[Rfam]
RNA sequence: GUUUAAUUUUGGUGAUUGCAACUGAUAAACUCAUAUAUUGAGUGUUGUCCAUCACCUCCUACCUUCGGAUGUUCUACUGGAAUGGAGUUAAAUAACAGCACAACAUCA
Numbered sequence: 001g002u003u004u005a006a007u008u009u010u011g012g013u014g015a016u017u018g019c020a021a022c023u024g025a026u027a028a029a030c031u032c033a034u035a036u037a038u039u040g041a042g043u044g045u046u047g048u049c050c051a052u053c054a055c056c057u058c059c060u061a062c063c064u065u066c067g068g069a070u071g072u073u074c075u076a077c078u079g080g081a082a083u084g085g086a087g088u089u090a091a092a093u094a095a096c097a098g099c100a101c102a103a104c105a106u107c108a
Stems, first nucleotide, its partner, number of pairs: 042101006054089001056087004062080002